Background:
A member of the RNA family "msiK RNA" from Winogradskya consettensis, 59 nucleotides long. Rfam 15.1 lists 1,374 matches to the family in 1,364 species. The family's consensus secondary structure is taken from published work. Lineage of the source: Bacteria > Bacillati > Actinomycetes > Micromonosporales > Winogradskya.
[Rfam]
RNA sequence: CGCAUGUUCCUCCCACUCGGAUCGUCCGGCACGUUCCUGCCGGUGGAAAGGAAGUAGCA
Numbered sequence: 001c002g003c004a005u006g007u008u009c010c011u012c013c014c015a016c017u018c019g020g021a022u023c024g025u026c027c028g029g030c031a032c033g034u035u036c037c038u039g040c041c042g043g044u045g046g047a048a049a050g051g052a053a054g055u056a057g058c059a
Base pairs, nucleotide, nucleotide: 009050011048013046014045015044026043027042028041029040030039031038